[Rfam]
RNA sequence: GACACACGGAAGGAGGCUCGCUUGACUACAUCAAGAACAUUUAGGUUGCAUUACGCUACUUGGACCUUGGGCUACGUGAGCUCGAAGAAGGCAGCAGAUUCAUGAUGGGACUGGCUAGAGGCAAAGUCCGGAAAUCGGUCCCUUUUUCGGACACCGCGGAUGCGGCUCGGUGUCGAUUCUGGCAUGGAACUGGGACCCAUCUCGAGUUGGAGUCAAAGUUUAGUGCUUGUCCAGUUACUUGGCCAAACUCGUCUGCUUUGAGCUGGAUCCGCGGGCAGUCGUCAUCUGGCUCGGCUCACUGACAUGUGCUUCAGUACAACUACUAUUGGCUUAUAAGGACACACCGUGGAUGUGGGAGGCAGUCCUGGUUGUCCUCUUCCCAGAAAUGGCUGGAGGGCAACCCCCCGCUGAUGAGG
Number, nucleotide and partner (000 for none) at each position: 001g000002a000003c000004a000005c000006a000007c000008g000009g000010a000011a000012g000013g000014a000015g000016g000017c000018u000019c000020g000021c000022u000023u000024g000025a000026c000027u000028a000029c000030a000031u000032c000033a000034a000035g000036a000037a000038c000039a000040u000041u000042u000043a000044g000045g000046u000047u000048g000049c000050a000051u000052u000053a000054c000055g000056c000057u000058a000059c000060u000061u000062g000063g000064a000065c000066c000067u000068u000069g000070g000071g000072c000073u000074a000075c000076g000077u000078g000079a000080g000081c000082u000083c000084g000085a000086a000087g000088a000089a000090g000091g000092c000093a000094g000095c000096a000097g000098a000099u000100u000101c000102a000103u000104g000105a000106u000107g000108g000109g000110a000111c000112u000113g000114g000115c000116u000117a000118g000119a000120g000121g000122c000123a000124a000125a000126g000127u000128c000129c000130g000131g000132a000133a000134a000135u000136c000137g000138g000139u000140c000141c000142c000143u000144u000145u000146u000147u000148c000149g000150g000151a000152c000153a000154c000155c000156g000157c000158g000159g000160a000161u000162g000163c000164g000165g000166c000167u000168c000169g000170g000171u000172g000173u000174c000175g000176a000177u000178u000179c000180u000181g000182g000183c000184a000185u000186g000187g000188a000189a000190c000191u000192g000193g000194g214195a213196c212197c210198c209199a208200u000201c000202u000203c000204g000205a000206g000207u000208u199209g198210g197211a000212g196213u195214c194215a000216a228217a227218g226219u225220u000221u000222a000223g000224u000225g219226c218227u217228u216229g000230u000231c000232c000233a000234g000235u000236u000237a000238c000239u000240u000241g000242g000243c000244c000245a000246a000247a000248c000249u000250c000251g000252u000253c000254u000255g000256c000257u000258u000259u000260g000261a000262g000263c000264u000265g000266g000267a000268u000269c000270c000271g000272c000273g000274g000275g000276c000277a000278g000279u000280c000281g000282u000283c000284a000285u000286c000287u000288g000289g000290c000291u000292c000293g000294g000295c000296u000297c000298a000299c000300u000301g000302a000303c000304a000305u000306g000307u000308g000309c000310u000311u000312c000313a000314g000315u000316a000317c000318a000319a000320c000321u000322a000323c000324u000325a000326u000327u000328g000329g000330c000331u000332u000333a000334u000335a000336a000337g000338g000339a000340c000341a000342c000343a000344c000345c000346g000347u000348g000349g000350a000351u000352g000353u000354g000355g000356g000357a000358g000359g000360c000361a000362g000363u000364c000365c000366u000367g000368g000369u000370u000371g000372u000373c000374c000375u000376c000377u000378u000379c000380c000381c000382a000383g000384a000385a000386a000387u000388g000389g000390c000391u000392g000393g000394a000395g000396g000397g000398c000399a000400a000401c000402c000403c000404c000405c000406c000407g000408c000409u000410g000411a000412u000413g000414a000415g000416g000
RNA: Ascomycota telomerase RNA, nucleotides 1149 to 1564
Organism: Trichoderma atroviride